A member of the RNA family "Caenorhabditis snoRNA ceN84" from Caenorhabditis angaria, 130 nucleotides long. Lineage of the source: Eukaryota > Opisthokonta > Protostomia > Chromadorea > Caenorhabditis. The base pairs follow the family's consensus structure, which was predicted with RNAalifold. It is annotated as an H/ACA-box small nucleolar RNA. A reference for the family is Jia et al. (2007), "Systematic identification of non-coding RNA 2,2,7-trimethylguanosine cap structures in Caenorhabditis elegans", BMC Mol Biol.
RNA sequence: AUGCCACGGUGUCUGGGCAGAGUGGGCUGUUUUUAAUAGUACUAACUUAAUCCACCGUCGGCUAUAUGAUAGCUUUGUAUAAUCCCUGAACACCUCUGUAGUGUAUUAGAUUCAUGACAUUGCUACAUUU
Numbered sequence: 001a002u003g004c005c006a007c008g009g010u011g012u013c014u015g016g017g018c019a020g021a022g023u024g025g026g027c028u029g030u031u032u033u034u035a036a037u038a039g040u041a042c043u044a045a046c047u048u049a050a051u052c053c054a055c056c057g058u059c060g061g062c063u064a065u066a067u068g069a070u071a072g073c074u075u076u077g078u079a080u081a082a083u084c085c086c087u088g089a090a091c092a093c094c095u096c097u098g099u100a101g102u103g104u105a106u107u108a109g110a111u112u113c114a115u116g117a118c119a120u121u122g123c124u125a126c127a128u129u130u
Stems, first nucleotide, its partner, number of pairs: 003062003007057004015053003020048003023044003026040005075122001077120002080117001086109004090104004